[Rfam]
RNA sequence: CGGCGAGGCUUCCUUACCGUUAUCCAAGGAGGCACUCGAUCAUGCUGUGGGAUGCCCGGACCGGCACCCUUAGACGCCCGUCGUCGAUGGUAUGGUGUGAGGAUGGGUUAAAUGCCCA
Numbered sequence: 001c002g003g004c005g006a007g008g009c010u011u012c013c014u015u016a017c018c019g020u021u022a023u024c025c026a027a028g029g030a031g032g033c034a035c036u037c038g039a040u041c042a043u044g045c046u047g048u049g050g051g052a053u054g055c056c057c058g059g060a061c062c063g064g065c066a067c068c069c070u071u072a073g074a075c076g077c078c079c080g081u082c083g084u085c086g087a088u089g090g091u092a093u094g095g096u097g098u099g100a101g102g103a104u105g106g107g108u109u110a111a112a113u114g115c116c117c118a
Stems, first nucleotide, its partner, number of pairs: 001019003008033006035101004039096008049070003053066004073085004104118005

The family of this 118-nucleotide RNA from Bacillus sp. V59.32b is "epsC RNA". It is annotated as a cis-regulatory element. Pairs were carried over by alignment from the consensus structure, which is taken from published work. Taxonomically the source falls in Bacillus (Bacteria, Bacillati, Bacillota, Caryophanales).